The record is a 78-nucleotide RNA sequence from Alligator sinensis, which matches "Mammalian CPEB3 ribozyme" in Rfam.

[Rfam]
RNA sequence: UUUAUGUCACUGGGGGCCAUAGCAGAAGUGUUCGUAUCAUGGCCCCAAUCGGAUUCCAACAAAUCUGAGAAUUCUGCU
Number, nucleotide and partner (000 for none) at each position: 001u000002u000003u000004a000005u000006g000007u000008c000009a000010c000011u000012g000013g046014g045015g044016g043017c042018c041019a000020u000021a078022g077023c076024a075025g074026a073027a072028g040029u039030g038031u000032u000033c000034g000035u000036a000037u000038c030039a029040u028041g018042g017043c016044c015045c014046c013047a000048a000049u000050c067051g066052g065053a064054u063055u062056c000057c000058a000059a000060c000061a000062a055063a054064u053065c052066u051067g050068a000069g000070a000071a000072u027073u026074c025075u024076g023077c022078u021